Source information
The record is a 416-nucleotide RNA sequence from Naumovozyma castellii, which matches "Small nucleolar RNA snR37" in Rfam. A reference for the family is Schattner et al. (2004), "Genome-wide searching for pseudouridylation guide snoRNAs: analysis of the Saccharomyces cerevisiae genome", Nucleic Acids Res. It is one of the family's seed sequences.
RNA sequence: AUCAUCAGUGGCGGUUAAUACUAUCUCAAGAUAAUAUUAAUUACUAUAACAUAGAAACCUAGCGGUUCGAUCAUUUGUAUCCUCAUGACAGAGGUUGGGAGUUCUUAGAGAAGUUUUUGAUUCCAUCAUGGCUUUUUCUUCCUUUCAAUCUUUUGUUAGUUAAUACUGGGAUUAUGAAUAAUUGAAACCAUUUCAAUAACCCAUAGCUGAAUGAAUUUUGACUAUCUCCAAACAAGAUCGGGCACAAUUUUCAUUUCGUUUCCGGUUUCUUAGAUUAUCAUCUAUUAUGAUGGGGGCAUUCUUUUUGGGACGUCUAAGGACGAUUUCAGGGAAUGAAGAGCACGUUUACAGAGGAUUGUAUAAUGCGAUCUGAGAGUUUGAAUUCUACUGUGACUCCCUAUUAUGAUAGGACAUUU
Numbered sequence: 001a002u003c004a005u006c007a008g009u010g011g012c013g014g015u016u017a018a019u020a021c022u023a024u025c026u027c028a029a030g031a032u033a034a035u036a037u038u039a040a041u042u043a044c045u046a047u048a049a050c051a052u053a054g055a056a057a058c059c060u061a062g063c064g065g066u067u068c069g070a071u072c073a074u075u076u077g078u079a080u081c082c083u084c085a086u087g088a089c090a091g092a093g094g095u096u097g098g099g100a101g102u103u104c105u106u107a108g109a110g111a112a113g114u115u116u117u118u119g120a121u122u123c124c125a126u127c128a129u130g131g132c133u134u135u136u137u138c139u140u141c142c143u144u145u146c147a148a149u150c151u152u153u154u155g156u157u158a159g160u161u162a163a164u165a166c167u168g169g170g171a172u173u174a175u176g177a178a179u180a181a182u183u184g185a186a187a188c189c190a191u192u193u194c195a196a197u198a199a200c201c202c203a204u205a206g207c208u209g210a211a212u213g214a215a216u217u218u219u220g221a222c223u224a225u226c227u228c229c230a231a232a233c234a235a236g237a238u239c240g241g242g243c244a245c246a247a248u249u250u251u252c253a254u255u256u257c258g259u260u261u262c263c264g265g266u267u268u269c270u271u272a273g274a275u276u277a278u279c280a281u282c283u284a285u286u287a288u289g290a291u292g293g294g295g296g297c298a299u300u301c302u303u304u305u306u307g308g309g310a311c312g313u314c315u316a317a318g319g320a321c322g323a324u325u326u327c328a329g330g331g332a333a334u335g336a337a338g339a340g341c342a343c344g345u346u347u348a349c350a351g352a353g354g355a356u357u358g359u360a361u362a363a364u365g366c367g368a369u370c371u372g373a374g375a376g377u378u379u380g381a382a383u384u385c386u387a388c389u390g391u392g393a394c395u396c397c398c399u400a401u402u403a404u405g406a407u408a409g410g411a412c413a414u415u416u
Base pairs, nucleotide, nucleotide: 008047009046010045011044013042014041015040016039017038018037019036020035022033023032024031025030053270054269055268056267057266058265059264064189065188066187067186068184069183070182071181073179074178075177076176077175078174079173080171081170082169083168087157088156089155090154091153092152093151094149095148096147097146098145099144100143101142108137109136110135111134112133113132114131115130158167159166160165209256210255211254212253213252214251215250218247219246220245222240224238225237226236282409283408284407285406286405288403289402290401291400292399293398294397295396311335312334313332314331315330316326317325318324337395338394341392342391343390344389347382349380350379351378352377353371354370355369356368357367358366359365
Dot-bracket structure: .......((((.((((((((.((((....)))).)))))))).)))).....(((((((....((((((((.(((((((((((...(((((((((((((((......((((((((..............))))))))....)))))))).)))))))(((....))))))).))))))).)))).))))...................(((((((..(((.(.(((.........))).)....)))..))))))).......)))))))...........(((((.((((((((...............((((((((.....)))...))).)).((..((((..(.(((((((((((.....))))))).....)))).)......)))).)))))))))).))))).......
It is annotated as an H/ACA-box small nucleolar RNA.